[Rfam]
RNA sequence: GACCAUCAUCAAGAGUUGGGACAGAUGCCCCACGCCAACCUGCCGAUCCGGGCAAGGUGGUUCUUCGAACAGAAGAUGCGGCCCUGAACUUUAAGUUCAAAGGCAACGAAUCGGAUCGAA
Number, nucleotide and partner (000 for none) at each position: 001g000002a000003c000004c000005a000006u000007c078008a077009u076010c075011a000012a000013g000014a000015g033016u000017u032018g031019g030020g029021a000022c000023a000024g000025a000026u000027g000028c000029c020030c019031c018032a017033c015034g061035c060036c059037a000038a000039c057040c056041u055042g053043c052044c051045g000046a116047u115048c114049c113050g112051g044052g043053c042054a000055a041056g040057g039058u000059g036060g035061u034062u000063c000064u000065u000066c000067g000068a000069a000070c000071a000072g000073a000074a000075g010076a009077u008078g007079c000080g000081g104082c103083c102084c000085u000086g000087a000088a000089c000090u000091u000092u000093a000094a000095g000096u000097u000098c000099a000100a000101a000102g083103g082104c081105a000106a000107c000108g000109a000110a000111u000112c050113g049114g048115a047116u046117c000118g000119a000120a000